Y RNA: a 113-nucleotide RNA from Pan troglodytes.
[Rfam]
RNA sequence: GGCUGGUCCAAAGGUUGAGAGUUAUCUCAAUUGAUUGUUCACAGUCAGUUAUGGAUGAAACUCCUUGUUUUACUCUUUUCCCCCUUCUUACUGCUGCGCUUGACUAGUCAAAA
Numbered sequence: 001g002g003c004u005g006g007u008c009c010a011a012a013g014g015u016u017g018a019g020a021g022u023u024a025u026c027u028c029a030a031u032u033g034a035u036u037g038u039u040c041a042c043a044g045u046c047a048g049u050u051a052u053g054g055a056u057g058a059a060a061c062u063c064c065u066u067g068u069u070u071u072a073c074u075c076u077u078u079u080c081c082c083c084c085u086u087c088u089u090a091c092u093g094c095u096g097c098g099c100u101u102g103a104c105u106a107g108u109c110a111a112a113a
Stems, first nucleotide, its partner, number of pairs: 001109008010101002014097002017091001019089003044074001047071002
Background: It is annotated as a non-coding RNA gene.